[Rfam]
RNA: Bacterial large subunit ribosomal RNA, nucleotides 849 to 1279
Organism: Acutalibacter sp. 1XD8-33
RNA sequence: CUCUCCGAAAUAGUUUUAGGACUAGCCUUGUAUUAGAUUACCGGAGGUAAAGCACUGAAUGGCCUAGGGCCCGAGAGGGUACCGAAGCCUAUCAAACUCUGAAUGCCGGCUAAUUGAUGUACAGGAGUCAGACAGUGGGAGAUAAGUUUCAUUGUCAAAAGGGAAACAGCCCAGACCCACAGCUAAGGUCCCAAAGUACACUUCAGUGGAAAAGGAUGUGGGGUUGCACAGACAACCAGGAUGUUGGCUCAGAAGCAGCCACUCAUUAAAAGAGUGCGUAAUAGCUCACUGGUCGAGUGGCCCUGCGCCGAAAAUUUAACGGGGCUAAAGUGUACACCGAAGCUUGGGAUGCAGCAAUGCAUGGUAGGAGAGCGUCGUAUGCGGGGUGAAGUCAGAGCGGAAGCGCUGGUGGACUGCAUACGAGUGAGAAU
Numbered sequence: 001c002u003c004u005c006c007g008a009a010a011u012a013g014u015u016u017u018a019g020g021a022c023u024a025g026c027c028u029u030g031u032a033u034u035a036g037a038u039u040a041c042c043g044g045a046g047g048u049a050a051a052g053c054a055c056u057g058a059a060u061g062g063c064c065u066a067g068g069g070c071c072c073g074a075g076a077g078g079g080u081a082c083c084g085a086a087g088c089c090u091a092u093c094a095a096a097c098u099c100u101g102a103a104u105g106c107c108g109g110c111u112a113a114u115u116g117a118u119g120u121a122c123a124g125g126a127g128u129c130a131g132a133c134a135g136u137g138g139g140a141g142a143u144a145a146g147u148u149u150c151a152u153u154g155u156c157a158a159a160a161g162g163g164a165a166a167c168a169g170c171c172c173a174g175a176c177c178c179a180c181a182g183c184u185a186a187g188g189u190c191c192c193a194a195a196g197u198a199c200a201c202u203u204c205a206g207u208g209g210a211a212a213a214g215g216a217u218g219u220g221g222g223g224u225u226g227c228a229c230a231g232a233c234a235a236c237c238a239g240g241a242u243g244u245u246g247g248c249u250c251a252g253a254a255g256c257a258g259c260c261a262c263u264c265a266u267u268a269a270a271a272g273a274g275u276g277c278g279u280a281a282u283a284g285c286u287c288a289c290u291g292g293u294c295g296a297g298u299g300g301c302c303c304u305g306c307g308c309c310g311a312a313a314a315u316u317u318a319a320c321g322g323g324g325c326u327a328a329a330g331u332g333u334a335c336a337c338c339g340a341a342g343c344u345u346g347g348g349a350u351g352c353a354g355c356a357a358u359g360c361a362u363g364g365u366a367g368g369a370g371a372g373c374g375u376c377g378u379a380u381g382c383g384g385g386g387u388g389a390a391g392u393c394a395g396a397g398c399g400g401a402a403g404c405g406c407u408g409g410u411g412g413a414c415u416g417c418a419u420a421c422g423a424g425u426g427a428g429a430a431u
Stems, first nucleotide, its partner, number of pairs: 001372006011024005026127001027125007035118001036115005041109004050100001051098002056094003061089003067083002069080004131156010161172003176348004181344003187338003196335007214309002218306010235293005241266003246260003267271001272287001276285002349362005373426001375423010391410005397404002